The family of this 116-nucleotide RNA from Candidatus Colimorpha enterica is "DUF3268 RNA".
The sequence is in the family's curated seed alignment.
The family's consensus secondary structure is taken from published work.
Taxonomically the source falls in Candidatus Colimorpha (Bacteria, Bacteroidota, Bacteroidia, Bacteroidales).
[Rfam]
RNA sequence: GGCAGGGCCUUGCGUUCAGGCUUUCGGUACGCCAAGAGAUGCGUCAGACUUAUCCAAGGGAGGAUAAGGAACCGUUACGGAUCCGUGCAAUGAGCGAAUCCACAAUAACGCAGGUC
Numbered sequence: 001g002g003c004a005g006g007g008c009c010u011u012g013c014g015u016u017c018a019g020g021c022u023u024u025c026g027g028u029a030c031g032c033c034a035a036g037a038g039a040u041g042c043g044u045c046a047g048a049c050u051u052a053u054c055c056a057a058g059g060g061a062g063g064a065u066a067a068g069g070a071a072c073c074g075u076u077a078c079g080g081a082u083c084c085g086u087g088c089a090a091u092g093a094g095c096g097a098a099u100c101c102a103c104a105a106u107a108a109c110g111c112a113g114g115u116c
Stems, first nucleotide, its partner, number of pairs: 007116001009114008025074004029044004049068007079101003084096003